[Rfam]
RNA sequence: GUUCUUUAGACAUUAAAAGCUUCUAACAUGAUACGGAAUUUGAGAUUCCCAUAUCACAUUAGAAGCUUUUUUGUU
Numbered sequence: 001g002u003u004c005u006u007u008a009g010a011c012a013u014u015a016a017a018a019g020c021u022u023c024u025a026a027c028a029u030g031a032u033a034c035g036g037a038a039u040u041u042g043a044g045a046u047u048c049c050c051a052u053a054u055c056a057c058a059u060u061a062g063a064a065g066c067u068u069u070u071u072u073g074u075u
Stems, first nucleotide, its partner, number of pairs: 009075004015070012029056005035049005
About this RNA
Staphylococcus sRNA sau-19: a 75-nucleotide RNA sequence from Staphylococcus aureus. On this family, see Abu-Qatouseh et al., J Mol Med (Berl) 2010: "Identification of differentially expressed small non-protein-coding RNAs in Staphylococcus aureus displaying both the normal and the small-colony variant phenotype". The base pairs follow the family's consensus structure, which was predicted with mfold. NCBI's taxonomy places the organism under Bacteria, Bacilli, Caryophanales, Staphylococcus, Staphylococcus aureus.